[Rfam]
RNA sequence: UGGUGAUAUCUCCUUAUCUAUAUCAAUGGAGGUACUCGAUCAUGCUGUGGGUUGAAAAAACCUUAGACGCUCGUCGUCAUUAGUGUGGUGUGAGGUUGGGUUAAAUGCCCG
Numbered sequence: 001u002g003g004u005g006a007u008a009u010c011u012c013c014u015u016a017u018c019u020a021u022a023u024c025a026a027u028g029g030a031g032g033u034a035c036u037c038g039a040u041c042a043u044g045c046u047g048u049g050g051g052u053u054g055a056a057a058a059a060a061c062c063u064u065a066g067a068c069g070c071u072c073g074u075c076g077u078c079a080u081u082a083g084u085g086u087g088g089u090g091u092g093a094g095g096u097u098g099g100g101u102u103a104a105a106u107g108c109c110c111g
Stems, first nucleotide, its partner, number of pairs: 002018003007034007035094004039089008049063005066078004097111005

The record is a 111-nucleotide sequence from Anaerobacillus isosaccharinicus, which matches "epsC RNA" in Rfam.
By type it is a cis-regulatory element.
A search with the family's covariance model found it, with a score of 110 bits.
Pairs were carried over by alignment from the consensus structure, which is taken from published work.